[Rfam]
RNA sequence: CCAUGAUAGAUGGGGAAUUAGCGAUGCCCUGUAACCUGCAAUCGCUACAGCAGGAUUGAAUUCCCAUCGGAGGACUUAAAUUGUGCAGCCUGCCCCAAGUGUGUGGCGUUGAUAAUAGGGUCCUGCGCAACGUAUGCUUGUGAACCGUGUCAGGUCUUGACGGAAGCAGCACUAAGCAAGAUUUUAUGUGUGCCGCAGGGGUGCCUUAUUUGAGUUAACUGCUUGGGUACCGUGUGUAGUUUAAUUUCGAUGAUGGGUUCAUGG
Number, nucleotide and partner (000 for none) at each position: 001c264002c263003a262004u261005g260006a259007u000008a000009g057010a056011u055012g030013g029014g028015g027016a000017a025018u024019u023020a000021g000022c000023g019024a018025u017026g000027c015028c014029c013030u012031g000032u000033a000034a000035c054036c053037u052038g051039c050040a000041a000042u000043c000044g000045c000046u000047a000048c000049a000050g039051c038052a037053g036054g035055a011056u010057u009058g000059a000060a000061u000062u000063c257064c256065c255066a254067u253068c252069g251070g000071a000072g248073g247074a246075c000076u244077u000078a242079a241080a240081u239082u238083g237084u236085g235086c234087a233088g000089c000090c000091u229092g228093c000094c000095c226096c225097a224098a223099g222100u221101g000102u000103g219104u218105g216106g215107c214108g000109u000110u000111g000112a000113u000114a210115a209116u208117a207118g206119g205120g204121u203122c199123c198124u197125g196126c195127g194128c190129a189130a000131c188132g187133u186134a185135u000136g000137c180138u179139u178140g177141u176142g000143a000144a000145c000146c000147g172148u171149g170150u169151c000152a000153g000154g000155u164156c163157u162158u000159g000160a000161c000162g157163g156164a155165a000166g000167c000168a000169g150170c149171a148172c147173u000174a000175a000176g141177c140178a139179a138180g137181a000182u000183u000184u000185u134186a133187u132188g131189u129190g128191u000192g000193c000194c127195g126196c125197a124198g123199g122200g000201g000202u000203g121204c120205c119206u118207u117208a116209u115210u114211u000212g000213a000214g107215u106216u105217a000218a104219c103220u000221g100222c099223u098224u097225g096226g095227g000228u092229a091230c000231c000232g000233u087234g086235u085236g084237u083238a082239g081240u080241u079242u078243a000244a076245u000246u074247u073248c072249g000250a000251u069252g068253a067254u066255g065256g064257g063258u000259u006260c005261a004262u003263g002264g001